[Rfam]
RNA sequence: AGAGCGCCGGCGUACAGGAGGAUGUCGUAGCACUGAGAGCGUUUACAGACGCUAUGAUCAGAUACUCAGCUCCCCCAGGAGAUGCGCCACAG
Numbered sequence: 001a002g003a004g005c006g007c008c009g010g011c012g013u014a015c016a017g018g019a020g021g022a023u024g025u026c027g028u029a030g031c032a033c034u035g036a037g038a039g040c041g042u043u044u045a046c047a048g049a050c051g052c053u054a055u056g057a058u059c060a061g062a063u064a065c066u067c068a069g070c071u072c073c074c075c076c077a078g079g080a081g082a083u084g085c086g087c088c089a090c091a092g
Stems, first nucleotide, its partner, number of pairs: 006087002010083001013080001015078001017076002020073002027070002030066001033061003038053006
RNA: Hepatitis C virus stem-loop SL8670
Organism: Orthohepacivirus hominis